[Rfam]
Rfam assigns this 94-nucleotide sequence from Dendrobium nobile to the family "Small nucleolar RNA snoR8a". By type it is a C/D-box small nucleolar RNA. For this family Rfam cites "Multiple snoRNA gene clusters from Arabidopsis" (Brown et al., RNA, 2001). Its family is annotated with RNA processing and nucleolus in the Gene Ontology. Pairs were carried over by alignment from the consensus structure, which was predicted with WAR. Lineage of the source: Eukaryota > Streptophyta > Asparagales > Dendrobieae > Dendrobium.

RNA sequence: UUGGUUGCUGCGAUUUUAAAUAAGUUCCUCGUUCUGAACUGCGAUUUAUUAUUAGAAUUACAGACACCGAGACACGCAUUGAAUGUGAGCAACU
Numbered sequence: 001u002u003g004g005u006u007g008c009u010g011c012g013a014u015u016u017u018a019a020a021u022a023a024g025u026u027c028c029u030c031g032u033u034c035u036g037a038a039c040u041g042c043g044a045u046u047u048a049u050u051a052u053u054a055g056a057a058u059u060a061c062a063g064a065c066a067c068c069g070a071g072a073c074a075c076g077c078a079u080u081g082a083a084u085g086u087g088a089g090c091a092a093c094u
Stems, first nucleotide, its partner, number of pairs: 003094002006091002